[Rfam]
RNA sequence: AAUUAUCUGAUGAUUUGUUUUCUAUUUUCUGACAUCUCUUAUGAACCGUUGUGAUUCAAAUCAGUUAUAACAAAUUCUGACACU
Numbered sequence: 001a002a003u004u005a006u007c008u009g010a011u012g013a014u015u016u017g018u019u020u021u022c023u024a025u026u027u028u029c030u031g032a033c034a035u036c037u038c039u040u041a042u043g044a045a046c047c048g049u050u051g052u053g054a055u056u057c058a059a060a061u062c063a064g065u066u067a068u069a070a071c072a073a074a075u076u077c078u079g080a081c082a083c084u
Stems, first nucleotide, its partner, number of pairs: 001084001003082001041052004
RNA: Small nucleolar RNA Me28S-Gm3255
Organism: Drosophila yakuba